Annotation: This 135-nucleotide RNA from Jeotgalibacillus soli belongs to the Rfam family "FMN riboswitch aptamer (RFN element)".

RNA sequence: GUAAUCCUUCGGGGCAGGGUGCAAGUCCCUACCGACGGUGAUGGACCUAGGUCCUUAGUCCGUGACCCGGCGAUGCCGGUGGAUUUGGUGAAAUUCCAAAGCCGACAGUGAUAGUCUGGAUGAGAGAAGGAAAAA
Dot-bracket structure: ....((((((......(((.......))).[[((((((...................[[))))...((.........))....(((((.......)))))]])).(((.....]]))).......))))))....
A search with the family's covariance model found it, with a score of 110 bits. The family has 146 seed sequences and 6,230 matches in Rfam 15.1.